Rfam assigns this 79-nucleotide RNA to the family "DUF3085 RNA".
[Rfam]
RNA sequence: CGGUAGCUGGACCCACCGGGCUCUCACGAGCCGAACCCAGCCAUCAAAGUCCGUUCAGGACUUCAUCAACCCUAGCGGG
Numbered sequence: 001c002g003g004u005a006g007c008u009g010g011a012c013c014c015a016c017c018g019g020g021c022u023c024u025c026a027c028g029a030g031c032c033g034a035a036c037c038c039a040g041c042c043a044u045c046a047a048a049g050u051c052c053g054u055u056c057a058g059g060a061c062u063u064c065a066u067c068a069a070c071c072c073u074a075g076c077g078g079g
Stems, first nucleotide, its partner, number of pairs: 001018004006041005019032004049061004

The base pairs follow the family's consensus structure, which is taken from published work.